This 102-nucleotide RNA sequence from Bacillus aerolatus belongs to the Rfam family "TPP riboswitch aptamer (THI element)".
It scores 69 bits against the family's covariance model.
RNA sequence: UUAGUCCACUAGGGGUGUCGUUAGACUGAGAGAGGAGUUCAUCCUCAACUCUAAGAACCUGAUCUGGGUCAUACCAGCGUAGGAAAGUGUGACAGGUACAAG
Numbered sequence: 001u002u003a004g005u006c007c008a009c010u011a012g013g014g015g016u017g018u019c020g021u022u023a024g025a026c027u028g029a030g031a032g033a034g035g036a037g038u039u040c041a042u043c044c045u046c047a048a049c050u051c052u053a054a055g056a057a058c059c060u061g062a063u064c065u066g067g068g069u070c071a072u073a074c075c076a077g078c079g080u081a082g083g084a085a086a087g088u089g090u091g092a093c094a095g096g097u098a099c100a101a102g
Stems, first nucleotide, its partner, number of pairs: 007089004011052004017026003033045004058083004064077004
Notes
The family's consensus secondary structure is taken from published work.